[Rfam]
RNA sequence: AUUCAUCUUCGGGGCAGGGUGUAAUUCCCGACCGGCGGUAAUGGAAUUCAUAGAGUUCCGAGCCCGCGAGCUGAAAAGCUGAUUCUGGUGUGAUUCCAGAGCCGACAGUAUAGUCUGGAUGGGAGAAGGUGAAG
Dot-bracket structure: ..((((((((......(((.......))).[[((((((.......................[[))))..(((....)))....(((((.......)))))]])).(((....]]))).......))))))))..

The family of this 134-nucleotide sequence from Sporosarcina sp. Marseille-Q4063 is "FMN riboswitch aptamer (RFN element)". The base pairs follow the family's consensus structure, which is taken from published work.